[Rfam]
RNA sequence: CAAUAGAAAUGGCAAACUUGUUGAAAAACAAGGACGCAAAACUAUAGGGGCUAAAGUAAAUCUAUGCCAGCCAGUUGCCUAC
Numbered sequence: 001c002a003a004u005a006g007a008a009a010u011g012g013c014a015a016a017c018u019u020g021u022u023g024a025a026a027a028a029c030a031a032g033g034a035c036g037c038a039a040a041a042c043u044a045u046a047g048g049g050g051c052u053a054a055a056g057u058a059a060a061u062c063u064a065u066g067c068c069a070g071c072c073a074g075u076u077g078c079c080u081a082c
Stems, first nucleotide, its partner, number of pairs: 012037002017032006040076004047072002049068003056062001
The record is an 82-nucleotide sequence from Aquibacillus halophilus, which matches "c-di-GMP-I riboswitch aptamer" in Rfam.
Its Rfam clan is "c-di-GMP_I riboswitch clan".
GEMM was predicted in a large-scale screen for bacterial structured RNA regulatory elements.
Rfam links the family to the GO term cyclic-di-GMP binding.